[Rfam]
RNA: Interferon gamma 5' UTR regulatory element
Organism: Lynx pardinus
RNA sequence: CAUUUUUCUGAUUGUCUGCUGGUCGGCUAUUAGAAAAGAAAGAUCGGCUAAAUCCUUCGGACCUGAUCAACUUCAUCCCGGAGCUACUGAUAUCAACUACUUCGGCCUAACUCUCCGAAACGAUGAAUUACACAAGUUUUAUUUUCGCUUUUCAGCUUUGUAUAAUU
Numbered sequence: 001c002a003u004u005u006u007u008c009u010g011a012u013u014g015u016c017u018g019c020u021g022g023u024c025g026g027c028u029a030u031u032a033g034a035a036a037a038g039a040a041a042g043a044u045c046g047g048c049u050a051a052a053u054c055c056u057u058c059g060g061a062c063c064u065g066a067u068c069a070a071c072u073u074c075a076u077c078c079c080g081g082a083g084c085u086a087c088u089g090a091u092a093u094c095a096a097c098u099a100c101u102u103c104g105g106c107c108u109a110a111c112u113c114u115c116c117g118a119a120a121c122g123a124u125g126a127a128u129u130a131c132a133c134a135a136g137u138u139u140u141a142u143u144u145u146c147g148c149u150u151u152u153c154a155g156c157u158u159u160g161u162a163u164a165a166u167u
Stems, first nucleotide, its partner, number of pairs: 009069006015118002018115001021113002025107004032101002035098001041093001043091005051085001053083001056081002059078001119167002123163003129141002132138001147156003